Rfam assigns this 133-nucleotide RNA sequence from Nannospalax galili to the family "Small nucleolar RNA SNORA9". The match comes from Rfam's covariance-model search (125 bits). Gene Ontology terms of the family: nucleolus and RNA processing. It is annotated as an H/ACA-box small nucleolar RNA.
[Rfam]
RNA sequence: UAGCAAGGCUCCAGCGUGCCAGUGUCUGCAGUAAGCCUGUGCAUUCCUACAGCGCUUGCCAGAACAGUUCUAAAGUGGUUUGAGGCCUUGCCCUGCUCUGUCCAGGGCAAGGUUAUAGAAAUUUCAGACAAUU
Numbered sequence: 001u002a003g004c005a006a007g008g009c010u011c012c013a014g015c016g017u018g019c020c021a022g023u024g025u026c027u028g029c030a031g032u033a034a035g036c037c038u039g040u041g042c043a044u045u046c047c048u049a050c051a052g053c054g055c056u057u058g059c060c061a062g063a064a065c066a067g068u069u070c071u072a073a074a075g076u077g078g079u080u081u082g083a084g085g086c087c088u089u090g091c092c093c094u095g096c097u098c099u100g101u102c103c104a105g106g107g108c109a110a111g112g113u114u115a116u117a118g119a120a121a122u123u124u125c126a127g128a129c130a131a132u133u
Base pairs, nucleotide, nucleotide: 003059004058005057006056007055017043018042019041022037025034071126073124074123075122086112087111088110089109090108091107093105094104095103